Annotation: Rfam assigns this 115-nucleotide RNA sequence from Alkaliphilus pronyensis to the family "TPP riboswitch aptamer (THI element)". Rfam links the family to the GO term thiamine pyrophosphate binding. The match comes from Rfam's covariance-model search (65 bits).
RNA sequence: UUAAAGCACUGGGAGGGUUGGAUAGGCCAACUGAGAUAAGAACCCUAUGAUGUUCUUGAUCCCCAAUUACCUGAUCUGGAUAAUACCAGCGGAGGGAAGGUGUACUUAUAAAGCA
Numbered sequence: 001u002u003a004a005a006g007c008a009c010u011g012g013g014a015g016g017g018u019u020g021g022a023u024a025g026g027c028c029a030a031c032u033g034a035g036a037u038a039a040g041a042a043c044c045c046u047a048u049g050a051u052g053u054u055c056u057u058g059a060u061c062c063c064c065a066a067u068u069a070c071c072u073g074a075u076c077u078g079g080a081u082a083a084u085a086c087c088a089g090c091g092g093a094g095g096g097a098a099g100g101u102g103u104a105c106u107u108a109u110a111a112a113g114c115a
Base pairs, nucleotide, nucleotide: 006103007102008101009100010099011064012063013062017031018030019029020028021027038057039056040055041054042053070095071094072093076089077088078087079086